[Rfam]
RNA: Ruegeria cis2 sRNA
Organism: Donghicola eburneus
RNA sequence: AUCGAGCUAUUGUGUGGAUUGUAGUUGAUAAAAACGAAACCACGCGCCUGGUCGAUACAGUGGAACAGGGGGUUCCAGUCGAACAUACUGAGCAUGAACGGAGGUAGGGAGUUGGCAACAAACAUCUUGCCCGACGCGAUCAUAUUGGCGCGCUG
Number, nucleotide and partner (000 for none) at each position: 001a000002u037003c036004g035005a000006g000007c000008u034009a000010u032011u031012g000013u000014g000015u027016g026017g025018a000019u000020u000021g000022u000023a000024g000025u017026u016027g015028a000029u000030a000031a011032a010033a000034a008035c004036g003037a002038a000039a000040c000041c000042a056043c054044g053045c000046g000047c000048c000049u000050g000051g000052u000053c044054g043055a000056u042057a000058c000059a000060g000061u000062g000063g000064a000065a000066c155067a154068g153069g000070g151071g000072g084073u083074u082075c081076c000077a000078g000079u000080c000081g075082a074083a073084c072085a000086u000087a000088c000089u148090g000091a146092g145093c000094a143095u142096g141097a000098a000099c000100g000101g135102a000103g132104g131105u129106a128107g127108g126109g125110a000111g000112u121113u120114g119115g000116c000117a000118a000119c114120a113121a112122a000123c000124a000125u109126c108127u107128u106129g105130c000131c104132c103133g000134a000135c101136g000137c000138g000139a000140u000141c096142a095143u094144a000145u092146u091147g000148g089149c000150g000151c070152g000153c068154u067155g066